[Rfam]
RNA sequence: CGGUCUGGGAAUACAUAAGUAUUCCCGGAGGAUCUAUAGGAUGGUCGGGCCGCCAUCU
Dot-bracket structure: ....((((((((........))))))))..........(((((((......)))))))
Shown here is a 58-nucleotide sequence, a member of the family "nhaA-I RNA". Rfam's curators put it in the seed alignment. Acidobacteria, Alphaproteobacteria, Betaproteobacteria and Gammaproteobacteria, Verrucomicrobia, cand. division NC10.